[Rfam]
Nucleotides: 133
Base pairs, nucleotide, nucleotide: 003058004057005056006055009050010049019044020043021042023040025038026037027036062133063132064131067128068127069126071124072123073122084113085112086111087110088109090107092105093104
Number, partner (000 for none) and nucleotide at each position: 001000c002000c003058g004057c005056a006055u007000u008000c009050u010049u011000c012000a013000a014000a015000a016000c017000c018000c019044c020043c021042c022000g023040g024000c025038a026037g027036c028000u029000g030000u031000c032000u033000u034000u035000a036027g037026c038025u039000g040023c041000a042021g043020g044019g045000a046000c047000a048000a049010g050009g051000a052000g053000g054000a055006a056005u057004g058003c059000a060000a061000g062133a063132g064131a065000a066000a067128u068127c069126c070000u071124g072123g073122a074000g075000u076000a077000a078000a079000g080000c081000a082000a083000a084113g085112g086111c087110u088109g089000u090107g091000g092105g093104u094000g095000u096000c097000a098000u099000c100000u101000c102000u103000a104093a105092c106000u107090c108000u109088c110087a111086g112085c113084c114000a115000u116000u117000u118000c119000a120000g121000c122073u123072c124071u125000u126069g127068g128067a129000c130000a131064u132063u133062u